Rfam assigns this 190-nucleotide RNA from Streptomyces corynorhini to the family "c-di-AMP riboswitch aptamer (ydaO/yuaA leader)".
RNA sequence: CCGGACAGAACGCCGAAUCCUGCCGCUGCCCGGAAACCCACACCUACACACGUACGGCAGGAGCGGGGGACCCAGGUAAGCCGCCGGUCCAGUGGUUGGACCGGCUUGGGGUGAAGUCGUCUUUUCUCGCGACCGGGCAUCUCCUGCCCGAACCCGACAGCUCACCUCGCAGGCGACGGAGAGGAACGCG
Numbered sequence: 001c002c003g004g005a006c007a008g009a010a011c012g013c014c015g016a017a018u019c020c021u022g023c024c025g026c027u028g029c030c031c032g033g034a035a036a037c038c039c040a041c042a043c044c045u046a047c048a049c050a051c052g053u054a055c056g057g058c059a060g061g062a063g064c065g066g067g068g069g070a071c072c073c074a075g076g077u078a079a080g081c082c083g084c085c086g087g088u089c090c091a092g093u094g095g096u097u098g099g100a101c102c103g104g105c106u107u108g109g110g111g112u113g114a115a116g117u118c119g120u121c122u123u124u125u126c127u128c129g130c131g132a133c134c135g136g137g138c139a140u141c142u143c144c145u146g147c148c149c150g151a152a153c154c155c156g157a158c159a160g161c162u163c164a165c166c167u168c169g170c171a172g173g174c175g176a177c178g179g180a181g182a183g184g185a186a187c188g189c190g
Stems, first nucleotide, its partner, number of pairs: 011175004018062008063170006073108005109155003117132004135149004